[Rfam]
RNA sequence: GGGUCAUAUGAUGAAAAACUAUGUGCAAUUCUCACGAUGGUCAUCUGAGACACUGUGUGUGUAAUGUUGCAGUCAUAUUUCUCUGAUGCCC
Numbered sequence: 001g002g003g004u005c006a007u008a009u010g011a012u013g014a015a016a017a018a019c020u021a022u023g024u025g026c027a028a029u030u031c032u033c034a035c036g037a038u039g040g041u042c043a044u045c046u047g048a049g050a051c052a053c054u055g056u057g058u059g060u061g062u063a064a065u066g067u068u069g070c071a072g073u074c075a076u077a078u079u080u081c082u083c084u085g086a087u088g089c090c091c
Stems, first nucleotide, its partner, number of pairs: 001091004051059003

Source information:
Small nucleolar RNA Z161/Z228: a 91-nucleotide sequence from Digitaria exilis. For this family Rfam cites "The high diversity of snoRNAs in plants: identification and comparative study of 120 snoRNA genes from Oryza sativa" (Chen et al., Nucleic Acids Res, 2003). Rfam links the family to the GO terms RNA processing and nucleolus. It is annotated as a C/D-box small nucleolar RNA.